A member of the RNA family "Group II catalytic intron D1-D4-6" from Desulfonema ishimotonii, 294 nucleotides long. Taxonomically the source falls in Desulfonema (Bacteria, Pseudomonadati, Desulfobacteria, Desulfobacterales). Group II introns are found in rRNA, tRNA and mRNA of organelles in fungi, plants and protists, and also in mRNA in bacteria. The match comes from Rfam's covariance-model search (95 bits). The base pairs follow the family's consensus structure.
RNA sequence: CAAGUCCCCGUCAGGUAAGGUCUGGCCAACCGCCUGUACCGAGUGUUGCGUGACCGGGAAGGACAGACAUACCGUUGAACGACCCGCACGAAGCGUACACAGGGAAUCAUAUAGGCCACAGGGGGAACGGCGCUCCCCUGAAGCAUGGUACAGCACCGUAAUGAGUAAAAAUGCGGACGGCGACGUUUUUAACGUGACGGAAGCCGAAACAAAGGAAUCGUCAGUAUCUCUGCGAGGCUUGCCUCAGCGUUGAUCAGGCGAGAUUCCGGAGGGUCUGCCGGUGUCAUCAGGGCG
Numbered sequence: 001c002a003a004g005u006c007c008c009c010g011u012c013a014g015g016u017a018a019g020g021u022c023u024g025g026c027c028a029a030c031c032g033c034c035u036g037u038a039c040c041g042a043g044u045g046u047u048g049c050g051u052g053a054c055c056g057g058g059a060a061g062g063a064c065a066g067a068c069a070u071a072c073c074g075u076u077g078a079a080c081g082a083c084c085c086g087c088a089c090g091a092a093g094c095g096u097a098c099a100c101a102g103g104g105a106a107u108c109a110u111a112u113a114g115g116c117c118a119c120a121g122g123g124g125g126a127a128c129g130g131c132g133c134u135c136c137c138c139u140g141a142a143g144c145a146u147g148g149u150a151c152a153g154c155a156c157c158g159u160a161a162u163g164a165g166u167a168a169a170a171a172u173g174c175g176g177a178c179g180g181c182g183a184c185g186u187u188u189u190u191a192a193c194g195u196g197a198c199g200g201a202a203g204c205c206g207a208a209a210c211a212a213a214g215g216a217a218u219c220g221u222c223a224g225u226a227u228c229u230c231u232g233c234g235a236g237g238c239u240u241g242c243c244u245c246a247g248c249g250u251u252g253a254u255c256a257g258g259c260g261a262g263a264u265u266c267c268g269g270a271g272g273g274u275c276u277g278c279c280g281g282u283g284u285c286a287u288c289a290g291g292g293c294g
Stems, first nucleotide, its partner, number of pairs: 012036004019031003039103002043100004047095002049090004055086004061080001153284006173278006179205003184199004210272001214267006